[Rfam]
RNA sequence: ACUAUCUCAUGGGGGUGCCCGACGAAGACCGAUCGGGCUGAGAGGCAAAAGACCAACUCCUUGAACCUGAUCCGGUUGGUACCGGCGGAGGGAUUUGAGAUGAAGAUCUUA
Numbered sequence: 001a002c003u004a005u006c007u008c009a010u011g012g013g014g015g016u017g018c019c020c021g022a023c024g025a026a027g028a029c030c031g032a033u034c035g036g037g038c039u040g041a042g043a044g045g046c047a048a049a050a051g052a053c054c055a056a057c058u059c060c061u062u063g064a065a066c067c068u069g070a071u072c073c074g075g076u077u078g079g080u081a082c083c084g085g086c087g088g089a090g091g092g093a094u095u096u097g098a099g100a101u102g103a104a105g106a107u108c109u110u111a
Stems, first nucleotide, its partner, number of pairs: 006099004011060004017038005045053001066091003072085004
The record is a 111-nucleotide RNA from Roseibium album, which matches "TPP riboswitch aptamer (THI element)" in Rfam. Its family is annotated with thiamine pyrophosphate binding in the Gene Ontology.